RNA sequence: GUUGCUUCCUAAUGGUGAACUCCCUCGAAUAAAAAAGAUGAGGGAUGAUUCAAGUUUCCGAAGCAUAGAUGGAACAAUUAUCAUUUGAGUCAGUGUUAAACAGCGUCGGUGUCCUAAUUCGAGUUGCGCUGGCGCUACCUGUCUGCUGAUAUAUAU
Numbered sequence: 001g002u003u004g005c006u007u008c009c010u011a012a013u014g015g016u017g018a019a020c021u022c023c024c025u026c027g028a029a030u031a032a033a034a035a036a037g038a039u040g041a042g043g044g045a046u047g048a049u050u051c052a053a054g055u056u057u058c059c060g061a062a063g064c065a066u067a068g069a070u071g072g073a074a075c076a077a078u079u080a081u082c083a084u085u086u087g088a089g090u091c092a093g094u095g096u097u098a099a100a101c102a103g104c105g106u107c108g109g110u111g112u113c114c115u116a117a118u119u120c121g122a123g124u125u126g127c128g129c130u131g132g133c134g135c136u137a138c139c140u141g142u143c144u145g146c147u148g149a150u151a152u153a154u155a156u
Stems, first nucleotide, its partner, number of pairs: 003065006016052004020047001021045005089150007102136003106132005